[Rfam]
RNA sequence: AAGCCGCAAGGGGAUGGGGUUCACCCUUUAACCGCCCCAGUAAGGGCUGAUGACUCCUGCCGUAUC
Numbered sequence: 001a002a003g004c005c006g007c008a009a010g011g012g013g014a015u016g017g018g019g020u021u022c023a024c025c026c027u028u029u030a031a032c033c034g035c036c037c038c039a040g041u042a043a044g045g046g047c048u049g050a051u052g053a054c055u056c057c058u059g060c061c062g063u064a065u066c
Base pairs, nucleotide, nucleotide: 010026011025012024016057017056018055019054020053021052034047035046036045037044
Description
A member of the RNA family "Fluoride riboswitch aptamer (crcB RNA motif)" from Acetobacter orleanensis, 66 nucleotides long. A search with the family's covariance model found it, with a score of 52 bits. Taxonomically the source falls in Acetobacter (Bacteria, Pseudomonadati, Acetobacterales, Acetobacteraceae).